Rfam assigns this 62-nucleotide sequence from Drosophyllum lusitanicum to the family "Plastid-psbA-4 3UTR RNA".
It is annotated as a cis-regulatory element.
The family's consensus secondary structure was predicted with LocARNA.
Its Rfam clan is "Plastid-psbA 3UTR RNA clan".
The sequence is in the family's curated seed alignment.
A reference for the family is Richter et al. (2023), "Retrograde signaling in plants: A critical review focusing on the GUN pathway and beyond", Plant Commun.
RNA sequence: GAAAGUUUAGUAGCAAUAACCAAAUUCGUGAUAAAACAAGAAUUUGGUUAUUGCUACUAAAC
Numbered sequence: 001g002a003a004a005g006u007u008u009a010g011u012a013g014c015a016a017u018a019a020c021c022a023a024a025u026u027c028g029u030g031a032u033a034a035a036a037c038a039a040g041a042a043u044u045u046g047g048u049u050a051u052u053g054c055u056a057c058u059a060a061a062c
Base pairs, nucleotide, nucleotide: 007060008059009058010057011056012055013054014053015052016051017050018049022045023044025042026041027040029038030037